This 55-nucleotide RNA from Nothobranchius furzeri belongs to the Rfam family "UnaL2 LINE 3' element". Pairs were carried over by alignment from the consensus structure, which is taken from published work. It scores 56 bits against the family's covariance model. From the family's description: The eel long interspersed element (LINE) UnaL2 and its partner short interspersed element (SINE) share a conserved 3' tail containing a stem-loop that is critical for their retrotransposition. Presumably, the first step of retrotransposition is the recognition of their 3' tails by UnaL2-encoded reverse transcriptase. NCBI's taxonomy places the organism under Eukaryota, Actinopterygii, Teleostei, Ctenosquamata, Nothobranchius.
[Rfam]
RNA sequence: UAGGUUAUUAACUGUAAGUCGCUUUGGAUAAAAGCAUCUGCUAAAUAAACAUAAA
Number, nucleotide and partner (000 for none) at each position: 001u000002a000003g000004g000005u000006u000007a000008u000009u000010a000011a000012c000013u043014g041015u040016a039017a000018g000019u000020c000021g035022c034023u033024u032025u031026g000027g000028a000029u000030a000031a025032a024033a023034g022035c021036a000037u000038c000039u016040g015041c014042u000043a013044a000045a000046u000047a000048a000049a000050c000051a000052u000053a000054a000055a000